The record is a 65-nucleotide sequence from Astyanax mexicanus, which matches "Selenocysteine insertion sequence 1" in Rfam.

RNA sequence: UGCUGGGUAAUGAGGACUCGUGCUAAAAGCCUCUGGGGGACGGGGACGAGUCUGAUGUCUCAGUG
Number, nucleotide and partner (000 for none) at each position: 001u065002g064003c063004u062005g061006g000007g000008u000009a000010a000011u000012g000013a000014g000015g052016a051017c050018u049019c048020g047021u046022g000023c044024u043025a000026a000027a000028a000029g000030c039031c038032u037033c000034u000035g000036g000037g032038g031039g030040a000041c000042g000043g024044g023045g000046a021047c020048g019049a018050g017051u016052c015053u000054g000055a000056u000057g000058u000059c000060u000061c005062a004063g003064u002065g001
Rfam links the family to the GO term selenocysteine incorporation. The family's consensus secondary structure is taken from published work. The organism belongs to Astyanax, within Eukaryota. The match comes from Rfam's covariance-model search (37 bits).